[Rfam]
RNA sequence: CGGCGGGACACCCCUCCCCACCGGGGGGCAUUUAUCUGGAAGGAUACCAUGU
Number, nucleotide and partner (000 for none) at each position: 001c000002g000003g000004c000005g000006g000007g000008a000009c000010a000011c028012c027013c026014c025015u024016c023017c000018c000019c000020a000021c000022c000023g016024g015025g014026g013027g012028g011029c000030a000031u000032u000033u046034a045035u044036c043037u042038g000039g000040a000041a000042g037043g036044a035045u034046a033047c000048c000049a000050u000051g000052u000
The record is a 52-nucleotide RNA from Rhodobacter ferrooxidans, which matches "serC leader" in Rfam. About the family: This family is a putative regulatory RNA structure that is found upstream of the serC-serA operon in some alpha-proteobacteria. The final stem of the structure overlaps the ribosome binding site of the serC reading frame. Rfam links the family to the GO term regulation of gene expression. The organism belongs to Rhodobacter, within Bacteria. A search with the family's covariance model found it, with a score of 66 bits.